[Rfam]
RNA sequence: UCUUCCAAAACAAUAUGAGAUCUGUGUCAGUCUCCCGGAGCUCUUUUCCUUCGGGAUUAGUUGUCAUUCGGUCGAGACUGACAACUCGACGUCAAGGAGCCGUUCCUCUACGGAGAAUUCUGAUAGCGUCAAUCUUCCGGUCGACAGAUCUCAAAUUAAACCGGUCGUCUUCGAAGCCUGAGCUCCCGUCAGGUGAGCUCGGUCGAGGGGGCUACUGAGGACGUCAUAUUCCACCACGUUCCCGAAUGGGCGUCGUCUGAUGAGGGUUGGGUAAAACGUACGUAUAGAGAU
Numbered sequence: 001u002c003u004u005c006c007a008a009a010a011c012a013a014u015a016u017g018a019g020a021u022c023u024g025u026g027u028c029a030g031u032c033u034c035c036c037g038g039a040g041c042u043c044u045u046u047u048c049c050u051u052c053g054g055g056a057u058u059a060g061u062u063g064u065c066a067u068u069c070g071g072u073c074g075a076g077a078c079u080g081a082c083a084a085c086u087c088g089a090c091g092u093c094a095a096g097g098a099g100c101c102g103u104u105c106c107u108c109u110a111c112g113g114a115g116a117a118u119u120c121u122g123a124u125a126g127c128g129u130c131a132a133u134c135u136u137c138c139g140g141u142c143g144a145c146a147g148a149u150c151u152c153a154a155a156u157u158a159a160a161c162c163g164g165u166c167g168u169c170u171u172c173g174a175a176g177c178c179u180g181a182g183c184u185c186c187c188g189u190c191a192g193g194u195g196a197g198c199u200c201g202g203u204c205g206a207g208g209g210g211g212c213u214a215c216u217g218a219g220g221a222c223g224u225c226a227u228a229u230u231c232c233a234c235c236a237c238g239u240u241c242c243c244g245a246a247u248g249g250g251c252g253u254c255g256u257c258u259g260a261u262g263a264g265g266g267u268u269g270g271g272u273a274a275a276a277c278g279u280a281c282g283u284a285u286a287g288a289g290a291u
Stems, first nucleotide, its partner, number of pairs: 018151008026082009035071005040065001043060002047056003090143002092140002096130002099127002164215002176203003180200006186193002221283004226279002235271001237269002241266003248258004